[Rfam]
RNA sequence: ACGUGAAUAUUCUCACUGUUCUGAUUUUGUAAUAAUCAAGGCAGGCUAAACAUUCACUAUAUUAAGACCAUGCAUGUGUCCCCAGACUUAGUUCUUUCCCUAGGUCUAGUUUUAUCAAUGCUGGUGAUAAAC
Numbered sequence: 001a002c003g004u005g006a007a008u009a010u011u012c013u014c015a016c017u018g019u020u021c022u023g024a025u026u027u028u029g030u031a032a033u034a035a036u037c038a039a040g041g042c043a044g045g046c047u048a049a050a051c052a053u054u055c056a057c058u059a060u061a062u063u064a065a066g067a068c069c070a071u072g073c074a075u076g077u078g079u080c081c082c083c084a085g086a087c088u089u090a091g092u093u094c095u096u097u098c099c100c101u102a103g104g105u106c107u108a109g110u111u112u113u114a115u116c117a118a119u120g121c122u123g124g125u126g127a128u129a130a131a132c
Stems, first nucleotide, its partner, number of pairs: 003057003016044005022038005067125004072121002082109001084107008